[Rfam]
RNA sequence: GCCCUUCCUGAGACGGGAACCGAGCUGGUUUCUCUACUGGUGAUAUAUCCAAUCAUAGUGUUUAUCACCGGGAGUAAAUUGGCUCGGGUCCCGUCUCGGGCU
Number, nucleotide and partner (000 for none) at each position: 001g000002c000003c000004c000005u000006u000007c000008c000009u000010g000011a000012g000013a000014c000015g092016g091017g090018a089019a000020c087021c086022g000023a084024g083025c082026u081027g080028g079029u078030u077031u076032c074033u073034c072035u071036a000037c070038u000039g000040g068041u067042g066043a065044u064045a063046u000047a000048u000049c000050c000051a000052a000053u000054c000055a000056u000057a000058g000059u000060g000061u000062u000063u045064a044065u043066c042067a041068c040069c000070g037071g035072g034073a033074g032075u000076a031077a030078a029079u028080u027081g026082g025083c024084u023085c000086g021087g020088g000089u018090c017091c016092c015093g000094u000095c000096u000097c000098g000099g000100g000101c000102u000

This 102-nucleotide sequence from Caenorhabditis brenneri belongs to the Rfam family "mir-36 microRNA precursor family". It scores 64 bits against the family's covariance model. The organism belongs to Caenorhabditis, within Eukaryota. The family's consensus secondary structure was predicted with WAR.